The record is a 61-nucleotide RNA from Synechococcus sp. CC9902, which matches "Glutamine-II riboswitch aptamer" in Rfam. NCBI's taxonomy places the organism under Bacteria, Bacillati, Cyanobacteriota, Cyanophyceae, Synechococcus. The family's consensus secondary structure is taken from published work.
RNA sequence: UCACGUUGAACCGACAGCCGUCGGUUGCAGUUAGAGCCAGGUCACGCAACGGGGUCCUGGU
Numbered sequence: 001u002c003a004c005g006u007u008g009a010a011c012c013g014a015c016a017g018c019c020g021u022c023g024g025u026u027g028c029a030g031u032u033a034g035a036g037c038c039a040g041g042u043c044a045c046g047c048a049a050c051g052g053g054g055u056c057c058u059g060g061u
Stems, first nucleotide, its partner, number of pairs: 004051005010025005036061006042054002
Its family is annotated with glutamine binding in the Gene Ontology.